[Rfam]
RNA: mir-33 microRNA precursor family
Organism: Stegodyphus mimosarum
RNA sequence: UCAUGGUGCAUUGUAAUUGCAUUGCAUUUUUAUUUUAAAUGGUGCAAUGUAUUUGCAGUGCAAACAGGA
Numbered sequence: 001u002c003a004u005g006g007u008g009c010a011u012u013g014u015a016a017u018u019g020c021a022u023u024g025c026a027u028u029u030u031u032a033u034u035u036u037a038a039a040u041g042g043u044g045c046a047a048u049g050u051a052u053u054u055g056c057a058g059u060g061c062a063a064a065c066a067g068g069a
Stems, first nucleotide, its partner, number of pairs: 001069002004066001006065001007062010019050001021048007